The record is a 98-nucleotide RNA sequence from Sapientia aquatica, which matches "SAH (S-adenosyl-L-homocysteine) riboswitch aptamer" in Rfam. NCBI's taxonomy places the organism under Bacteria, Pseudomonadati, Burkholderiales, Oxalobacteraceae, Sapientia. It scores 47 bits against the family's covariance model. For this family Rfam cites "Riboswitches that sense S-adenosylhomocysteine and activate genes involved in coenzyme recycling" (Wang et al., Mol Cell, 2008). Its family is annotated with S-adenosylhomocysteine metabolic process and regulation of gene expression in the Gene Ontology.
[Rfam]
RNA sequence: GUCUCCAAGGAGCGUUGCGACGAAAUUGCUUGAGGUUGUUGUAUCAAGUACAUUUUUGCCAGGCUUGGAAUUAUCUACCGCAACCGCGCUCACGUUAC
Numbered sequence: 001g002u003c004u005c006c007a008a009g010g011a012g013c014g015u016u017g018c019g020a021c022g023a024a025a026u027u028g029c030u031u032g033a034g035g036u037u038g039u040u041g042u043a044u045c046a047a048g049u050a051c052a053u054u055u056u057u058g059c060c061a062g063g064c065u066u067g068g069a070a071u072u073a074u075c076u077a078c079c080g081c082a083a084c085c086g087c088g089c090u091c092a093c094g095u096u097a098c
Base pairs, nucleotide, nucleotide: 004069005068006067007066008065021058022057023056024055025054